[Rfam]
RNA sequence: AUUGGCCACGCGUAUUCUUGGGGAAUUAACACACUUUGCAGCUGUUAUUGCUUGAGAAUACACGUAGUUAAA
Numbered sequence: 001a002u003u004g005g006c007c008a009c010g011c012g013u014a015u016u017c018u019u020g021g022g023g024a025a026u027u028a029a030c031a032c033a034c035u036u037u038g039c040a041g042c043u044g045u046u047a048u049u050g051c052u053u054g055a056g057a058a059u060a061c062a063c064g065u066a067g068u069u070a071a072a
Base pairs, nucleotide, nucleotide: 002071003070004069005068008065009064010063012061013060014059015058016057017056018055019054020053021052022051025049027047028046029045030044031043032041
Dot-bracket structure: .((((..(((.(((((((((((..(.((((((........).))))).).))))))))))).)))..)))).